[Rfam]
This 89-nucleotide sequence from Cohnella nanjingensis belongs to the Rfam family "BsrC".
Rfam classes the family as a small RNA.
The family has 29 seed sequences and 572 matches in Rfam 15.1.
NCBI's taxonomy places the organism under Bacteria, Bacillati, Bacillota, Caryophanales, Cohnella.
About the family: The 301 nucleotide sequence from Kouji Nakamura has been trimmed to a highly conserved ~85 nucleotide long core to form this family.
A search with the family's covariance model found it, with a score of 57 bits.
RNA sequence: UUGCACGAAAGCAACGAAAGCCCUGCCUCUCAGUCGUUCUUGCGGCUCCAAUGACCGCGCCAGUCUUGAAUUCGUGUUCCUUCCAGCAG
Numbered sequence: 001u002u003g004c005a006c007g008a009a010a011g012c013a014a015c016g017a018a019a020g021c022c023c024u025g026c027c028u029c030u031c032a033g034u035c036g037u038u039c040u041u042g043c044g045g046c047u048c049c050a051a052u053g054a055c056c057g058c059g060c061c062a063g064u065c066u067u068g069a070a071u072u073c074g075u076g077u078u079c080c081u082u083c084c085a086g087c088a089g
Stems, first nucleotide, its partner, number of pairs: 034069003039063002041059005047053001